[Rfam]
RNA sequence: UUCUUAUCAAGAGUGGCAGAGGGACUGGCCCGAUGAAGCCCGGCAACCGUCAAUUUUUUAUUGAAAUGGUGCCAAUUCCAGAAGAUAAGCG
Numbered sequence: 001u002u003c004u005u006a007u008c009a010a011g012a013g014u015g016g017c018a019g020a021g022g023g024a025c026u027g028g029c030c031c032g033a034u035g036a037a038g039c040c041c042g043g044c045a046a047c048c049g050u051c052a053a054u055u056u057u058u059u060a061u062u063g064a065a066a067u068g069g070u071g072c073c074a075a076u077u078c079c080a081g082a083a084g085a086u087a088a089g090c091g
Stems, first nucleotide, its partner, number of pairs: 001091001003089006013041001015040003021031003025081004042073004047069002050064003077083001

Overview: This 91-nucleotide sequence from Culicoidibacter larvae belongs to the Rfam family "SAM riboswitch aptamer (S box leader)". NCBI's taxonomy places the organism under Bacteria, Culicoidibacteria, Culicoidibacterales, Culicoidibacteraceae, Culicoidibacter. The base pairs follow the family's consensus structure, which is taken from published work.